Source information:
The record is an 85-nucleotide sequence from Corythaixoides concolor, which matches "Small nucleolar RNA SNORD45" in Rfam. A search with the family's covariance model found it, with a score of 47 bits. A reference for the family is Kiss-Laszlo et al. (1996), "Site-specific ribose methylation of preribosomal RNA: a novel function for small nucleolar RNAs", Cell. It is annotated as a C/D-box small nucleolar RNA. Its family is annotated with nucleolus and RNA processing in the Gene Ontology. The family's consensus secondary structure was predicted with PFOLD.
[Rfam]
RNA sequence: GGUCCGUGAUGAGCGUUGGCAUGUAUUAUCUGAUCCGAAGGUGAGGUGUGACACCACUCCAGCUCUAGAAUUGCUCUGAGACCCA
Numbered sequence: 001g002g003u004c005c006g007u008g009a010u011g012a013g014c015g016u017u018g019g020c021a022u023g024u025a026u027u028a029u030c031u032g033a034u035c036c037g038a039a040g041g042u043g044a045g046g047u048g049u050g051a052c053a054c055c056a057c058u059c060c061a062g063c064u065c066u067a068g069a070a071u072u073g074c075u076c077u078g079a080g081a082c083c084c085a
Stems, first nucleotide, its partner, number of pairs: 001083004